RNA sequence: GAGUUAAUCUUUGCAGCAAGCUUAAGCGGUUACGUGUAGGCGCAGCGAAAGCGAGUCUGAAUAGGGCGAUUUAGUUGCAGGGAUUAGACCCGAAACCGGGUGAUCUAGCCAUGAGCAGGUUGAAGGUGCAGUAACAUGCACUGGAGGACCGAACCCACCAACGUUGAAAAGUUGGGGGAUGACUUGUGGCUAGGGGUGAAAGGCCAAUCAAACUCGGAAAUAGCUGGUU
Numbered sequence: 001g002a003g004u005u006a007a008u009c010u011u012u013g014c015a016g017c018a019a020g021c022u023u024a025a026g027c028g029g030u031u032a033c034g035u036g037u038a039g040g041c042g043c044a045g046c047g048a049a050a051g052c053g054a055g056u057c058u059g060a061a062u063a064g065g066g067c068g069a070u071u072u073a074g075u076u077g078c079a080g081g082g083a084u085u086a087g088a089c090c091c092g093a094a095a096c097c098g099g100g101u102g103a104u105c106u107a108g109c110c111a112u113g114a115g116c117a118g119g120u121u122g123a124a125g126g127u128g129c130a131g132u133a134a135c136a137u138g139c140a141c142u143g144g145a146g147g148a149c150c151g152a153a154c155c156c157a158c159c160a161a162c163g164u165u166g167a168a169a170a171g172u173u174g175g176g177g178g179a180u181g182a183c184u185u186g187u188g189g190c191u192a193g194g195g196g197u198g199a200a201a202g203g204c205c206a207a208u209c210a211a212a213c214u215c216g217g218a219a220a221u222a223g224c225u226g227g228u229u
Stems, first nucleotide, its partner, number of pairs: 005086013020041004026035003045052002055067004089227002092224001096217006105193011116181001118150004125142006154178003158175005195205003

Bacterial large subunit ribosomal RNA: a 229-nucleotide part of an RNA from Sneathiella litorea. The literature on the family includes a 2001 paper in Science by Yusupov et al., "Crystal structure of the ribosome at 5.5 A resolution". The match comes from Rfam's covariance-model search (2780 bits).